[Rfam]
Source information
Rfam assigns this 131-nucleotide RNA from Hymenochirus boettgeri to the family "Small nucleolar RNA SNORA28". The family's RNA type in Rfam is H/ACA-box small nucleolar RNA. Its Rfam clan is "SNORA28 clan". About the family: ACA28 is a member of the H/ACA class of snoRNA that guide the sites of modification of uridines to pseudouridines. Gene Ontology terms of the family: nucleolus and RNA processing. NCBI's taxonomy places the organism under Eukaryota, Vertebrata, Batrachia, Anura, Hymenochirus.
RNA sequence: AAGCAACACUCUGUGGCAGAGGUAAAAAUUAUCUGCCCCAAUUUUCGCUUGCUAAAUAAAUUUUUUUUUAAAAGCUUAAACUAUUCCAGUAAUCUCUUUGUGAGAUGAUCUGUUGUAUCGGCUUAGACAUU
Numbered sequence: 001a002a003g004c005a006a007c008a009c010u011c012u013g014u015g016g017c018a019g020a021g022g023u024a025a026a027a028a029u030u031a032u033c034u035g036c037c038c039c040a041a042u043u044u045u046c047g048c049u050u051g052c053u054a055a056a057u058a059a060a061u062u063u064u065u066u067u068u069u070a071a072a073a074g075c076u077u078a079a080a081c082u083a084u085u086c087c088a089g090u091a092a093u094c095u096c097u098u099u100g101u102g103a104g105a106u107g108a109u110c111u112g113u114u115g116u117a118u119c120g121g122c123u124u125a126g127a128c129a130u131u
Stems, first nucleotide, its partner, number of pairs: 009047001012040002015037001017035004022030001072124005078118001082117003087112003095105004
Dot-bracket structure: ........(..((.(.((((.(.......).)))).).))......)........................(((((.(...(((..(((.....((((...))))....)))..)))).))))).......